This 313-nucleotide RNA from archaeon HR04 belongs to the Rfam family "Archaeal signal recognition particle RNA". Pairs were carried over by alignment from the consensus structure, which is taken from published work.
[Rfam]
RNA sequence: UAGUAGGUAGGGUCGGGGUGCUAGCCGUGCCCCAUACCCGAAACCGGCUAUAUGCGGGGACCAGUAACCGUUGGGUAAAUCCAUGGGGUAUGGAUACCCGCUUACCCUGCUGGUAUGAACCCACGCCACGAUGGGUGGUCAUAGAUGGGCUCCCUGUCCGAAGGGAUAGGGGCACCAUCUUAUCACCGAACCGGGUGAGGUCCGGGAGGGAGCAACCCUAAGGUGAGAUGGCCACGCUGUCGUGUCUACGUGGGGGAUCUGGCUGGGUCUGAGAUGGGGUCCAUGCUCUAUGGUGGAACCAACGGGGCUACUA
Numbered sequence: 001u002a003g004u005a006g007g008u009a010g011g012g013u014c015g016g017g018g019u020g021c022u023a024g025c026c027g028u029g030c031c032c033c034a035u036a037c038c039c040g041a042a043a044c045c046g047g048c049u050a051u052a053u054g055c056g057g058g059g060a061c062c063a064g065u066a067a068c069c070g071u072u073g074g075g076u077a078a079a080u081c082c083a084u085g086g087g088g089u090a091u092g093g094a095u096a097c098c099c100g101c102u103u104a105c106c107c108u109g110c111u112g113g114u115a116u117g118a119a120c121c122c123a124c125g126c127c128a129c130g131a132u133g134g135g136u137g138g139u140c141a142u143a144g145a146u147g148g149g150c151u152c153c154c155u156g157u158c159c160g161a162a163g164g165g166a167u168a169g170g171g172g173c174a175c176c177a178u179c180u181u182a183u184c185a186c187c188g189a190a191c192c193g194g195g196u197g198a199g200g201u202c203c204g205g206g207a208g209g210g211a212g213c214a215a216c217c218c219u220a221a222g223g224u225g226a227g228a229u230g231g232c233c234a235c236g237c238u239g240u241c242g243u244g245u246c247u248a249c250g251u252g253g254g255g256g257a258u259c260u261g262g263c264u265g266g267g268u269c270u271g272a273g274a275u276g277g278g279g280u281c282c283a284u285g286c287u288c289u290a291u292g293g294u295g296g297a298a299c300c301a302a303c304g305g306g307g308c309u310a311c312u313a
Base pairs, nucleotide, nucleotide: 001313002312003311004310005309006308008306011062012061013060014059015033016032017031018030019029020028021027037058038057039056040055042053068305069304070303071302072301073300074299076297079294080293081292083289085287088286089285090284091283092282093281094280095279097278098277099276100275101271104268105267106266107265109263110262111261112260113259116256120254121253122252123251124250125249127244128243129242130241131240132239133238134237135235136234137233138232139231140230141229142228143180144179145178146177147176148175151172152171153170154169155168156167157166158165159164183226184225185224186223187222193218194217195216196215201210202209203208